RNA: Burkholderia sRNA 16 (Bc_KC_sr1)
RNA sequence: GUAGGUGGCUGGCGAUGCCGCCACCUGCCAUUCUCCUCUUGUCGUUGUUGCUCCGGGGCCAUAUAGCCCCGGUUUUUUUUG
Numbered sequence: 001g002u003a004g005g006u007g008g009c010u011g012g013c014g015a016u017g018c019c020g021c022c023a024c025c026u027g028c029c030a031u032u033c034u035c036c037u038c039u040u041g042u043c044g045u046u047g048u049u050g051c052u053c054c055g056g057g058g059c060c061a062u063a064u065a066g067c068c069c070c071g072g073u074u075u076u077u078u079u080u081g
Stems, first nucleotide, its partner, number of pairs: 001028007010020004053072007